Shown here is a 133-nucleotide RNA from Psychromicrobium lacuslunae, a member of the family "SAM (S-adenosyl methionine) riboswitch aptamer".
RNA sequence: CUUCAUGAGUUGUGGUCGCCUGCCAAUAGGCAAAGCUCCGACUGACCACACGCCAACCCCAAGUUCACGGGUGGCUCGGAUGACGAAGCGACUCGGCGGGCCGCGAGACAAACCCGCAGGGUAAGAGCUCUCG
Numbered sequence: 001c002u003u004c005a006u007g008a009g010u011u012g013u014g015g016u017c018g019c020c021u022g023c024c025a026a027u028a029g030g031c032a033a034a035g036c037u038c039c040g041a042c043u044g045a046c047c048a049c050a051c052g053c054c055a056a057c058c059c060c061a062a063g064u065u066c067a068c069g070g071g072u073g074g075c076u077c078g079g080a081u082g083a084c085g086a087a088g089c090g091a092c093u094c095g096g097c098g099g100g101c102c103g104c105g106a107g108a109c110a111a112a113c114c115c116g117c118a119g120g121g122u123a124a125g126a127g128c129u130c131u132c133g
Stems, first nucleotide, its partner, number of pairs: 001088004009051001011050006022042001052075003057071003091122004096117005

Background: The base pairs follow the family's consensus structure, which is taken from published work.